[Rfam]
RNA: Nuclear RNase P
RNA sequence: UCUGGCUGAAAGUUGACUUUAGGAAUUACUUACCAGUAUUUAUUACUGUUCUUAUUCCUGGGAAGGUCUGAGAUAAAGCUCCUGAUUUUAUUUAAAUCAGCAUCCUCUAGGAGGGGAUUUCUCGUAAUGAGAUUGGUUCCGUACCUGAAGAUAUCCUAACAGUUGCCACUAACAAGAAGUUUCUUUACAGAAAUGGAUUUAUGGCUUCUGUUAGUUUGGAAUCCGGCGCCGAUGCUAGCUAGUUUAAGUUCGAUAGUCAAUGGGAACAUUUAUAUGUUCAAAACUCAAUUCAGACUACUCUUCGACCAGA
Numbered sequence: 001u002c003u004g005g006c007u008g009a010a011a012g013u014u015g016a017c018u019u020u021a022g023g024a025a026u027u028a029c030u031u032a033c034c035a036g037u038a039u040u041u042a043u044u045a046c047u048g049u050u051c052u053u054a055u056u057c058c059u060g061g062g063a064a065g066g067u068c069u070g071a072g073a074u075a076a077a078g079c080u081c082c083u084g085a086u087u088u089u090a091u092u093u094a095a096a097u098c099a100g101c102a103u104c105c106u107c108u109a110g111g112a113g114g115g116g117a118u119u120u121c122u123c124g125u126a127a128u129g130a131g132a133u134u135g136g137u138u139c140c141g142u143a144c145c146u147g148a149a150g151a152u153a154u155c156c157u158a159a160c161a162g163u164u165g166c167c168a169c170u171a172a173c174a175a176g177a178a179g180u181u182u183c184u185u186u187a188c189a190g191a192a193a194u195g196g197a198u199u200u201a202u203g204g205c206u207u208c209u210g211u212u213a214g215u216u217u218g219g220a221a222u223c224c225g226g227c228g229c230c231g232a233u234g235c236u237a238g239c240u241a242g243u244u245u246a247a248g249u250u251c252g253a254u255a256g257u258c259a260a261u262g263g264g265a266a267c268a269u270u271u272a273u274a275u276g277u278u279c280a281a282a283a284c285u286c287a288a289u290u291c292a293g294a295c296u297a298c299u300c301u302u303c304g305a306c307c308a309g310a
Stems, first nucleotide, its partner, number of pairs: 001310004008303003014260001018256002021059005034048005068293005077236003103117005120132004135230003139226003155214001264279005